GP20-b RNA: a 58-nucleotide RNA sequence from Melissococcus plutonius. By type it is a cis-regulatory element. Rfam's curators put it in the seed alignment. NCBI's taxonomy places the organism under Bacteria, Bacillota, Lactobacillales, Enterococcaceae, Melissococcus plutonius. Pairs were carried over by alignment from the consensus structure, which is taken from published work.

[Rfam]
RNA sequence: UGCCCUGAACAUGGCGUAAAACUGUUUGUCUAUGUGAGGCAACCACGUAAAAAGCGUA
Number, nucleotide and partner (000 for none) at each position: 001u016002g015003c014004c013005c000006u000007g000008a026009a025010c024011a023012u000013g004014g003015c002016g001017u000018a000019a000020a000021a000022c000023u011024g010025u009026u008027u000028g000029u000030c000031u000032a000033u047034g046035u045036g044037a000038g000039g000040c000041a000042a000043c000044c036045a035046c034047g033048u000049a000050a000051a000052a000053a000054g000055c000056g000057u000058a000